[Rfam]
RNA sequence: AUAUAUGAUGCAUUAAUUAUAUAUUUAUCCUAAAUUGAAGUCGUGAUCUGAGUAUAUCAUCGUGACUGUUUAUAUGCAAAUGAAAGAACCUGAGCAAGCACUCAGGUUCUUUUUUUA
Numbered sequence: 001a002u003a004u005a006u007g008a009u010g011c012a013u014u015a016a017u018u019a020u021a022u023a024u025u026u027a028u029c030c031u032a033a034a035u036u037g038a039a040g041u042c043g044u045g046a047u048c049u050g051a052g053u054a055u056a057u058c059a060u061c062g063u064g065a066c067u068g069u070u071u072a073u074a075u076g077c078a079a080a081u082g083a084a085a086g087a088a089c090c091u092g093a094g095c096a097a098g099c100a101c102u103c104a105g106g107u108u109c110u111u112u113u114u115u116u117a
Base pairs, nucleotide, nucleotide: 034073035072037070038069042062043061082113083112084111085110086109087108088107089106090105091104092103093102
Dot-bracket structure: .................................((.((...((.................))......)).))........((((((((((((........))))))))))))....
A member of the RNA family "Bacillus sRNA ncr1015" from Paenibacillus endophyticus, 117 nucleotides long. The match comes from Rfam's covariance-model search (82 bits). The literature on the family includes a 2010 paper in Nucleic Acids Res by Irnov et al., "Identification of regulatory RNAs in Bacillus subtilis". By type it is a small RNA. Pairs were carried over by alignment from the consensus structure, which is taken from published work.